Record summary:
Shown here is a 129-nucleotide sequence from Merluccius polli, a member of the family "Small nucleolar RNA ACA64". For this family Rfam cites "A computational screen for mammalian pseudouridylation guide H/ACA RNAs" (Schattner et al., RNA, 2006). It scores 37 bits against the family's covariance model. Taxonomically the source falls in Merluccius (Eukaryota, Chordata, Teleostomi, Euteleosteomorpha). The base pairs follow the family's consensus structure, which was predicted with WAR. Rfam links the family to the GO terms nucleolus and RNA processing.

[Rfam]
RNA sequence: CCAGUCUGAAAACCGCCUCUGGUGCUUCAGUGAGCAGAGGGGAGAUAACUUGGGCCUGACAUAACUCUGGUACAUUAUGCUUAUCACACACCGUCAUACCAGUGUGAUAAAACCCAUGUACCCACACGU
Numbered sequence: 001c002c003a004g005u006c007u008g009a010a011a012a013c014c015g016c017c018u019c020u021g022g023u024g025c026u027u028c029a030g031u032g033a034g035c036a037g038a039g040g041g042g043a044g045a046u047a048a049c050u051u052g053g054g055c056c057u058g059a060c061a062u063a064a065c066u067c068u069g070g071u072a073c074a075u076u077a078u079g080c081u082u083a084u085c086a087c088a089c090a091c092c093g094u095c096a097u098a099c100c101a102g103u104g105u106g107a108u109a110a111a112a113c114c115c116a117u118g119u120a121c122c123c124a125c126a127c128g129u
Stems, first nucleotide, its partner, number of pairs: 005054005010046001014042001016040001021035001023033001069122001071120005081110005089104003